[Rfam]
Small nucleolar RNA snoR8a: a 91-nucleotide RNA sequence from Sesamum indicum. Lineage of the source: Eukaryota > Streptophytina > Pentapetalae > Pedaliaceae > Sesamum. Rfam 15.1 lists 956 matches to the family in 245 species. On this family, see Brown et al., RNA 2001: "Multiple snoRNA gene clusters from Arabidopsis". Gene Ontology terms of the family: RNA processing and nucleolus. The match comes from Rfam's covariance-model search (86 bits).

RNA sequence: GUGGGAGCGAUGAUUAUAGAAUAAUUCCUCGUUCUGAAUGCUGUUGCCUCAGCUUGACAGACUUUUUAUACACCCAUAGAAUAUGAGCUCC
Dot-bracket structure: ..((.((................................................................................))))